[Rfam]
RNA: tRNA
Organism: Desulfomarina profundi
RNA sequence: GCCUGGAUGGUGGAACUGGUAGACACCCGAGACUUAAAAUCUCGUGGGCCUCGCGCCCGUGCGAGUUCGACUCUCGCUCUAGGCA
Numbered sequence: 001g002c003c004u005g006g007a008u009g010g011u012g013g014a015a016c017u018g019g020u021a022g023a024c025a026c027c028c029g030a031g032a033c034u035u036a037a038a039a040u041c042u043c044g045u046g047g048g049c050c051u052c053g054c055g056c057c058c059g060u061g062c063g064a065g066u067u068c069g070a071c072u073c074u075c076g077c078u079c080u081a082g083g084c085a
Base pairs, nucleotide, nucleotide: 001084002083003082004081005080006079007078010026011025012024028044029043030042031041032040061077062076063075064074065073